RNA: Streptomyces RNA 6925
Organism: Streptomyces sp. SID5789
RNA sequence: UCGGUGUUGCCACGCUGAGACGCCCCGUGGAAGGGAUCAGCGUGGUGAUGGUGGCGAUCUCCGCCCUUGCCGGGGCGGUACAGCCGUUAAGCGUCCGGCGUCCGGGAGUUGCUGCUCUCGGGCGCCGUCG
Dot-bracket structure: .(...((..(((((((((....((........))..)))))))))..)).(((((.....(((((((....)))))))....)))))...)....((((((((((((((....))))))))))))))...